[Rfam]
RNA sequence: ACUUUUUGAUUAUUAUGAUAUAAUCACCGCUCGAUUUUAUAUACCGCUCAGGAGGUCAAAUAUGGCUUUAGAUACGGCUAAAAAAGCUCAAAUAGUUGCAAAAUUUGCUAGAAAAAGU
Number, nucleotide and partner (000 for none) at each position: 001a000002c000003u000004u000005u000006u000007u026008g025009a024010u023011u022012a021013u000014u000015a000016u000017g000018a000019u000020a000021u012022a011023a010024u009025c008026a007027c000028c000029g000030c000031u000032c000033g000034a000035u000036u000037u000038u000039a000040u000041a000042u000043a000044c000045c000046g000047c000048u072049c071050a000051g069052g068053a067054g066055g000056u000057c000058a000059a000060a000061u000062a000063u000064g000065g000066c054067u053068u052069u051070a000071g049072a048073u000074a000075c000076g000077g000078c000079u000080a000081a000082a000083a000084a000085a000086g000087c000088u000089c000090a000091a000092a000093u000094a000095g000096u000097u000098g000099c000100a000101a000102a000103a000104u000105u000106u000107g000108c000109u000110a000111g000112a000113a000114a000115a000116a000117g000118u000

A member of the RNA family "Ribosomal S15 leader" from Campylobacter devanensis, 118 nucleotides long.
Pairs were carried over by alignment from the consensus structure, which is taken from published work.
On this family, see Benard et al., Biochimie 1996: "Pseudoknot and translational control in the expression of the S15 ribosomal protein".
The E. coli Ribosomal S15 gene 5' UTR can form two alternative structures. One that is a series of three hairpins, The other includes a pseudoknot. This structure causes translational regulation of the S15 protein. The alignment of this family contains only the final two hairpins which are conserved in other species, and also includes the complete region that forms the alternate structures.
Gene Ontology term of the family: regulation of translation, ncRNA-mediated.
The family's RNA type in Rfam is cis-regulatory leader.